[Rfam]
RNA sequence: UAGCAGAGCGGUAAAUUCGUUGUGAGUUGUUUAAGGCGUUCCCUUCCAUCGGUGGGCAAUAACCUUAACGUUAUAAUUCAUAAGGUCCGCUCUUUUU
Numbered sequence: 001u002a003g004c005a006g007a008g009c010g011g012u013a014a015a016u017u018c019g020u021u022g023u024g025a026g027u028u029g030u031u032u033a034a035g036g037c038g039u040u041c042c043c044u045u046c047c048a049u050c051g052g053u054g055g056g057c058a059a060u061a062a063c064c065u066u067a068a069c070g071u072u073a074u075a076a077u078u079c080a081u082a083a084g085g086u087c088c089g090c091u092c093u094u095u096u097u
Stems, first nucleotide, its partner, number of pairs: 002096002005093002008090002023080005030075001031068006042056003046052002
RNA: DUF3800-V RNA